[Rfam]
RNA sequence: UCGUCCGGCGAUGAUCAAACUAUAUACUUCUGUUCUAUCUCAUAGCACUGUGUGGAAGUGAUUUGGAGACCUGAACUGAGGAAGG
Numbered sequence: 001u002c003g004u005c006c007g008g009c010g011a012u013g014a015u016c017a018a019a020c021u022a023u024a025u026a027c028u029u030c031u032g033u034u035c036u037a038u039c040u041c042a043u044a045g046c047a048c049u050g051u052g053u054g055g056a057a058g059u060g061a062u063u064u065g066g067a068g069a070c071c072u073g074a075a076c077u078g079a080g081g082a083a084g085g
Stems, first nucleotide, its partner, number of pairs: 002084001004082003
Small nucleolar RNA Z159/U59: an 85-nucleotide sequence from Aegilops tauschii. Gene Ontology terms of the family: RNA processing and nucleolus. The source organism's lineage runs through Eukaryota, commelinids, Pooideae, Triticeae and Aegilops tauschii. The family is grouped with related families in Rfam's "SNORD59 clan". The match comes from Rfam's covariance-model search (50 bits). On this family, see Chen et al., Nucleic Acids Res 2003: "The high diversity of snoRNAs in plants: identification and comparative study of 120 snoRNA genes from Oryza sativa". Pairs were carried over by alignment from the consensus structure, which was predicted with PFOLD.